[Rfam]
RNA sequence: GUGCGGUCACAAAAAACAAAGUUUUUCGAACGUUGGCUUAGCCAGCGCCCCCGAAGGGAUGAACAAUCGCAUCGGCGAUUACAACUAAUAAACGAAAUU
Numbered sequence: 001g002u003g004c005g006g007u008c009a010c011a012a013a014a015a016a017c018a019a020a021g022u023u024u025u026u027c028g029a030a031c032g033u034u035g036g037c038u039u040a041g042c043c044a045g046c047g048c049c050c051c052c053g054a055a056g057g058g059a060u061g062a063a064c065a066a067u068c069g070c071a072u073c074g075g076c077g078a079u080u081a082c083a084a085c086u087a088a089u090a091a092a093c094g095a096a097a098u099u
Stems, first nucleotide, its partner, number of pairs: 010028001012026006031047007050058003065080006086095001
Aggregatibacter sRNA 22: a 99-nucleotide RNA from [Mannheimia] succiniciproducens. The base pairs follow the family's consensus structure, which was predicted with RNAfold. A reference for the family is Oogai et al. (2017), "Small RNA repertoires and their intraspecies variation in Aggregatibacter actinomycetemcomitans", DNA Res. It scores 58 bits against the family's covariance model. Rfam classes the family as a small RNA. Taxonomically the source falls in [Mannheimia] succiniciproducens (Bacteria, Gammaproteobacteria, Pasteurellales, Basfia).